[Rfam]
RNA: pan motif
RNA sequence: CGGGCGGUAUCCAUUAUGUGAACUGCACCAACCAUAGUAAAAAUUUUUUAAUAAAUUCUGCCUUGAUCCAAAGGGACGGGGACAGAGGA
Numbered sequence: 001c002g003g004g005c006g007g008u009a010u011c012c013a014u015u016a017u018g019u020g021a022a023c024u025g026c027a028c029c030a031a032c033c034a035u036a037g038u039a040a041a042a043a044u045u046u047u048u049u050a051a052u053a054a055a056u057u058c059u060g061c062c063u064u065g066a067u068c069c070a071a072a073g074g075g076a077c078g079g080g081g082a083c084a085g086a087g088g089a
Base pairs, nucleotide, nucleotide: 002029003028004026005025006024007023008022010021011020058085059084060083061081062080063079064078065077067076068075069074